About this RNA
The record is a 90-nucleotide RNA sequence from Canis lupus, which matches "mir-8799 microRNA precursor family" in Rfam. Clan: mir-8791 microRNA precursor clan.
[Rfam]
RNA sequence: GGGGGGAGGCCGGAUCCUGGGCUGUGUCCCGGCAUCCAGUGCUCCCGGGCCUGUCCUGUUGGAUUCGCCCUCCUGGCCGUGCAGCCCCCU
Numbered sequence: 001g002g003g004g005g006g007a008g009g010c011c012g013g014a015u016c017c018u019g020g021g022c023u024g025u026g027u028c029c030c031g032g033c034a035u036c037c038a039g040u041g042c043u044c045c046c047g048g049g050c051c052u053g054u055c056c057u058g059u060u061g062g063a064u065u066c067g068c069c070c071u072c073c074u075g076g077c078c079g080u081g082c083a084g085c086c087c088c089c090u
Stems, first nucleotide, its partner, number of pairs: 001090006009082002011079003016076002019073003024068003027063003030058003034054002039051001041050003
Dot-bracket structure: ((((((..(((((..((.(((..(((((((((.((...(.(((....)))).)).)))..)))..)))..))).))))).))..))))))